Shown here is a 130-nucleotide RNA from Senna tora, a member of the family "MIR390 microRNA precursor family". The family's consensus secondary structure was predicted with WAR. The match comes from Rfam's covariance-model search (104 bits). Its family is annotated with RISC complex and miRNA-mediated post-transcriptional gene silencing in the Gene Ontology.
Nucleotides: 130
Base pairs, nucleotide, nucleotide: 010121016115017114018113019112020111021110022109023108024107026105027104028103029102030101031100032099033098034097
Number, partner (000 for none) and nucleotide at each position: 001000c002000a003000g004000a005000a006000g007000a008000a009000u010121c011000u012000g013000u014000c015000a016115a017114g018113c019112u020111c021110a022109g023108g024107a025000g026105g027104g028103a029102u030101a031100g032099c033098g034097c035000c036000a037000u038000g039000g040000a041000u042000g043000a044000u045000u046000a047000u048000g049000a050000u051000u052000a053000u054000g055000a056000u057000u058000a059000u060000g061000a062000g063000a064000u065000u066000c067000a068000u069000u070000c071000g072000u073000c074000c075000u076000u077000c078000u079000u080000g081000u082000g083000a084000u085000c086000c087000a088000u089000c090000u091000u092000c093000u094000c095000c096000u097034g098033c099032g100031c101030u102029a103028u104027c105026c106000a107024u108023c109022c110021u111020g112019a113018g114017u115016u116000u117000c118000a119000u120000g121010g122000a123000u124000u125000c126000u127000u128000c129000a130000u